[Rfam]
RNA: Small nucleolar RNA R64/Z200 family
RNA sequence: AUGCUGCAGUGAUGAAUUAUGAAUAAUUCACAUGUCAGACUUCAGAGAUUUUAAACAAAAUCAAUGAGAUAAAAAUUCAUACUCUCUGAGCAGAAG
Numbered sequence: 001a002u003g004c005u006g007c008a009g010u011g012a013u014g015a016a017u018u019a020u021g022a023a024u025a026a027u028u029c030a031c032a033u034g035u036c037a038g039a040c041u042u043c044a045g046a047g048a049u050u051u052u053a054a055a056c057a058a059a060a061u062c063a064a065u066g067a068g069a070u071a072a073a074a075a076u077u078c079a080u081a082c083u084c085u086c087u088g089a090g091c092a093g094a095a096g
Stems, first nucleotide, its partner, number of pairs: 002095001004093004047062004